[Rfam]
The record is a 126-nucleotide sequence from Medicago truncatula, which matches "MIR168 microRNA precursor family" in Rfam. A search with the family's covariance model found it, with a score of 91 bits. On this family, see Reinhart et al., Genes Dev 2002: "MicroRNAs in plants".
RNA sequence: CUCACUUCGCUCUCUAAUUCGCUUGGUGCAGGUCGGGGAUCAUUACAUCCGCGGUUUCCAUAGCAAUGGUUACACGUGGUGAAUUGGAUCCCGAUUGUAUCAAUCGAAUUGGAGGUCGCAGUGAAU
Dot-bracket structure: ............((..((((..(((((((((..(((((.((............................................)).))))).)))))))))..))))..)).............
Numbered sequence: 001c002u003c004a005c006u007u008c009g010c011u012c013u014c015u016a017a018u019u020c021g022c023u024u025g026g027u028g029c030a031g032g033u034c035g036g037g038g039a040u041c042a043u044u045a046c047a048u049c050c051g052c053g054g055u056u057u058c059c060a061u062a063g064c065a066a067u068g069g070u071u072a073c074a075c076g077u078g079g080u081g082a083a084u085u086g087g088a089u090c091c092c093g094a095u096u097g098u099a100u101c102a103a104u105c106g107a108a109u110u111g112g113a114g115g116u117c118g119c120a121g122u123g124a125a126u
Stems, first nucleotide, its partner, number of pairs: 013113002017109004023103009034093005040087002